[Rfam]
RNA sequence: CAGUGUUGGAGCUCUUUAGAAUUUGUCUAGAGGUUUUCUGGUUUUCACUAGAAAAUUCCCAU
Numbered sequence: 001c002a003g004u005g006u007u008g009g010a011g012c013u014c015u016u017u018a019g020a021a022u023u024u025g026u027c028u029a030g031a032g033g034u035u036u037u038c039u040g041g042u043u044u045u046c047a048c049u050a051g052a053a054a055a056u057u058c059c060c061a062u
Base pairs, nucleotide, nucleotide: 032059033058035054036053037052038051039050040049041048042047